[Rfam]
RNA: Small nucleolar RNA SNORA32
RNA sequence: UGGUCAUUACCAAGGCUUUUAGAAUGCAGUUUCUCAUUUGCUGUGGACAUGACCAUAAAAAAAUUUCCCAGUAGGUUUUCUAUCUGCUACUUUGCUAGCAAUCAGCUUAUUGGGAACAGUU
Numbered sequence: 001u002g003g004u005c006a007u008u009a010c011c012a013a014g015g016c017u018u019u020u021a022g023a024a025u026g027c028a029g030u031u032u033c034u035c036a037u038u039u040g041c042u043g044u045g046g047a048c049a050u051g052a053c054c055a056u057a058a059a060a061a062a063a064u065u066u067c068c069c070a071g072u073a074g075g076u077u078u079u080c081u082a083u084c085u086g087c088u089a090c091u092u093u094g095c096u097a098g099c100a101a102u103c104a105g106c107u108u109a110u111u112g113g114g115a116a117c118a119g120u121u
Stems, first nucleotide, its partner, number of pairs: 003053005010046003026041004067114004074107004085100003